[Rfam]
RNA: Manganese Mn2+ riboswitch aptamer (yybP-ykoY)
Organism: Alkalicaulis satelles
RNA sequence: CCUGAGGGAGUAGCCGCCGUCGCGCACGCGACGGGCCUUCGUCAACACACUUGGCCGGCACGGCCAUGGCGAAGGCGCAUCUUCGGAUCCUGGCGAGACUCAUGACGGCCUGACGCGGAACCGGGAGCCGGACGCGACAGGUUGUCAUGUGGUCUGAUCGGCCGGCUCCGGAGAGAUGUC
Number, nucleotide and partner (000 for none) at each position: 001c000002c000003u000004g000005a000006g000007g000008g000009a000010g000011u000012a000013g000014c000015c000016g000017c000018c033019g032020u031021c000022g000023c000024g000025c000026a000027c000028g000029c000030g000031a020032c019033g018034g000035g076036c075037c074038u073039u072040c071041g070042u069043c068044a067045a000046c000047a000048c000049a000050c000051u000052u066053g065054g064055c063056c062057g000058g000059c000060a000061c000062g056063g055064c054065c053066a052067u044068g043069g042070c041071g040072a039073a038074g037075g036076c035077g179078c178079a177080u176081c175082u174083u173084c000085g000086g000087a000088u000089c000090c000091u000092g000093g000094c000095g000096a000097g000098a000099c000100u000101c000102a000103u000104g000105a000106c000107g000108g000109c000110c000111u000112g000113a000114c000115g000116c000117g000118g000119a000120a000121c000122c000123g000124g000125g000126a000127g000128c000129c000130g000131g000132a000133c000134g000135c000136g000137a000138c000139a000140g000141g000142u000143u000144g000145u000146c000147a000148u000149g000150u000151g000152g000153u000154c000155u000156g000157a000158u000159c000160g000161g000162c000163c000164g000165g000166c000167u000168c000169c000170g000171g000172a000173g083174a082175g081176a080177u079178g078179u077180c000